This 178-nucleotide sequence belongs to the Rfam family "Bacteroidales-1 6S-Bacteroidales RNA suggested". The family's consensus secondary structure is taken from published work. Rfam's curators put it in the seed alignment.

[Rfam]
RNA sequence: AGCCGCAUAGAUUGGAUCGGGAAACUCAUCAAUUCUAAUGAAAUACCGAGACAAGCUUCAGUUCUCAAUGGCGGGCCACGCCCUUCGGGGUAACUCUUGAGUCGGUGGAUUACAAAGAGGACGAGCACUCAAAUCAUGUCAUACGGAGUUUCAUCACAUCAUCGGUGCGGCUUUCUAU
Numbered sequence: 001a002g003c004c005g006c007a008u009a010g011a012u013u014g015g016a017u018c019g020g021g022a023a024a025c026u027c028a029u030c031a032a033u034u035c036u037a038a039u040g041a042a043a044u045a046c047c048g049a050g051a052c053a054a055g056c057u058u059c060a061g062u063u064c065u066c067a068a069u070g071g072c073g074g075g076c077c078a079c080g081c082c083c084u085u086c087g088g089g090g091u092a093a094c095u096c097u098u099g100a101g102u103c104g105g106u107g108g109a110u111u112a113c114a115a116a117g118a119g120g121a122c123g124a125g126c127a128c129u130c131a132a133a134u135c136a137u138g139u140c141a142u143a144c145g146g147a148g149u150u151u152c153a154u155c156a157c158a159u160c161a162u163c164g165g166u167g168c169g170g171c172u173u174u175c176u177a178u
Stems, first nucleotide, its partner, number of pairs: 055126003059123001061122006069114002076108004081090003093102003
From the family's description: Bacteroidales-1 was first reported in a comparative genomics-based approach of genome and metagenome sequences from Weinberg et al. 2010 In a high-resolution transcriptome map study of Bacteroides thetaiotaomicron, Ryan et al. 2020 report this sRNA as 6S RNA homologue of Bacteroides, in the study they obtain evidence of small product RNAs (pRNAs) related to 6S function.